[Rfam]
RNA: L2-Alphaproteobacteria ribosomal protein leader
RNA sequence: GCCGACCUUCGGGGCGGUUUACUCAAUUCAGGCCUAGCCUGAAAUACAACGGAAGACAGAGA
Numbered sequence: 001g002c003c004g005a006c007c008u009u010c011g012g013g014g015c016g017g018u019u020u021a022c023u024c025a026a027u028u029c030a031g032g033c034c035u036a037g038c039c040u041g042a043a044a045u046a047c048a049a050c051g052g053a054a055g056a057c058a059g060a061g062a
Base pairs, nucleotide, nucleotide: 001018002017003016004015006014007013008012028042029041030040031039032038033037